Record summary:
The family of this 98-nucleotide RNA from Litchfieldia salsa is "Guanidine-I riboswitch aptamer". The match comes from Rfam's covariance-model search (81 bits).
RNA sequence: UAAAAUGUUUUCUAGGGUUCCGUAAUUUUAUUGUUGGUCUGGUCCGAGAGAAAACUCACAGAUUUACUGUGCCACGGAAGGAUAAAAGCCUGGGAGGU
Numbered sequence: 001u002a003a004a005a006u007g008u009u010u011u012c013u014a015g016g017g018u019u020c021c022g023u024a025a026u027u028u029u030a031u032u033g034u035u036g037g038u039c040u041g042g043u044c045c046g047a048g049a050g051a052a053a054a055c056u057c058a059c060a061g062a063u064u065u066a067c068u069g070u071g072c073c074a075c076g077g078a079a080g081g082a083u084a085a086a087a088g089c090c091u092g093g094g095a096g097g098u
Stems, first nucleotide, its partner, number of pairs: 007055006015045002020042002022039001023036004057071005073093001075096001079091003
On this family, see Trachman RJ 3rd and Ferre-D'Amare, RNA 2021: "An uncommon [K(+)(Mg(2+))2] metal ion triad imparts stability and selectivity to the Guanidine-I riboswitch". The base pairs follow the family's consensus structure.